The record is a 68-nucleotide RNA sequence from Mycolicibacterium sediminis, which matches "ASdes TB sRNA" in Rfam. The base pairs follow the family's consensus structure, which is taken from published work.
RNA sequence: AGUUCGACGGGGUCGAUUGCCCGGGUGACGAUGAGGUAGUCGCGCAGGGCGAUGCCGUGGCGGUUCUC
Numbered sequence: 001a002g003u004u005c006g007a008c009g010g011g012g013u014c015g016a017u018u019g020c021c022c023g024g025g026u027g028a029c030g031a032u033g034a035g036g037u038a039g040u041c042g043c044g045c046a047g048g049g050c051g052a053u054g055c056c057g058u059g060g061c062g063g064u065u066c067u068c
Stems, first nucleotide, its partner, number of pairs: 004063003008059002012029002016026003035056004040052004

Lineage of the source: Bacteria > Actinomycetota > Mycobacteriales > Mycobacteriaceae > Mycobacterium (subgen. Mycolicibacterium). It scores 76 bits against the family's covariance model.